[Rfam]
RNA sequence: UCCGUCGUGAGGCGGAAUCUGAAGGAAGCUGGAGGCAAACGCACGGGUCAAGGUACACGAACUGGAUUUGAGGCAGGGUUAGCCGGAUGAGUUGCCAAUAGACAACGAAAUCCAAAGCCGCCAAGGGCUAACGCUGUAGUAUGGGAGAUGUUUCGAAACACAAAUAAU
Numbered sequence: 001u002c003c004g005u006c007g008u009g010a011g012g013c014g015g016a017a018u019c020u021g022a023a024g025g026a027a028g029c030u031g032g033a034g035g036c037a038a039a040c041g042c043a044c045g046g047g048u049c050a051a052g053g054u055a056c057a058c059g060a061a062c063u064g065g066a067u068u069u070g071a072g073g074c075a076g077g078g079u080u081a082g083c084c085g086g087a088u089g090a091g092u093u094g095c096c097a098a099u100a101g102a103c104a105a106c107g108a109a110a111u112c113c114a115a116a117g118c119c120g121c122c123a124a125g126g127g128c129u130a131a132c133g134c135u136g137u138a139g140u141a142u143g144g145g146a147g148a149u150g151u152u153u154c155g156a157a158a159c160a161c162a163a164a165u166a167a168u
Stems, first nucleotide, its partner, number of pairs: 001016006028168001030166002035161001041153001043151003062144003066140001073137003078132006085113004091106004